[Rfam]
RNA: mir-399 microRNA precursor family
RNA sequence: AGAAGAAUGACAGGGCAAUUCUCCUUUGGCAAAGAUAAUAUAAUGUCAUCCAAAAUAUAUAUGGUUUGCACAUAUAUUUAUUUGCCAAGGGAGAAUUACACUGUUAUUUCUCA
Dot-bracket structure: ....(((((.(((.(.(((.((((..(((((((.(...........................................).)))))))..)))).))).).))).)))))....